A member of the RNA family "Bacillus sRNA ncr1015" from Cohnella rhizosphaerae, 121 nucleotides long. The match comes from Rfam's covariance-model search (86 bits). The family's RNA type in Rfam is small RNA. The base pairs follow the family's consensus structure, which is taken from published work.
[Rfam]
RNA sequence: UUGUAAGAUGCGAUACAUUUGACUUUAUUUACAAAAACAUAAAGCAGAUUGAUUUUAUCAUCGGAUCUGCCUUUCCGCAAUAAAAAAAGAACCUGGCGAUUUGCGCCAGGUUCUUUUUUAU
Numbered sequence: 001u002u003g004u005a006a007g008a009u010g011c012g013a014u015a016c017a018u019u020u021g022a023c024u025u026u027a028u029u030u031a032c033a034a035a036a037a038c039a040u041a042a043a044g045c046a047g048a049u050u051g052a053u054u055u056u057a058u059c060a061u062c063g064g065a066u067c068u069g070c071c072u073u074u075c076c077g078c079a080a081u082a083a084a085a086a087a088a089g090a091a092c093c094u095g096g097c098g099a100u101u102u103g104c105g106c107c108a109g110g111u112u113c114u115u116u117u118u119u120a121u
Stems, first nucleotide, its partner, number of pairs: 034074003038069001039066002044062001085117012